Histone 3' UTR stem-loop: a 46-nucleotide RNA sequence from Neotoma lepida.
RNA sequence: CCAAAGGCUCUUUUAAGAGCCACUUCCAUAAUUCUUAAAAUAGCAA
Numbered sequence: 001c002c003a004a005a006g007g008c009u010c011u012u013u014u015a016a017g018a019g020c021c022a023c024u025u026c027c028a029u030a031a032u033u034c035u036u037a038a039a040a041u042a043g044c045a046a
Stems, first nucleotide, its partner, number of pairs: 006021006
On this family, see Williams and Marzluff, Nucleic Acids Res 1995: "The sequence of the stem and flanking sequences at the 3' end of histone mRNA are critical determinants for the binding of the stem-loop binding protein". Taxonomically the source falls in Neotoma (Eukaryota, Deuterostomia, Mammalia, Glires). It scores 37 bits against the family's covariance model. The family's RNA type in Rfam is cis-regulatory element.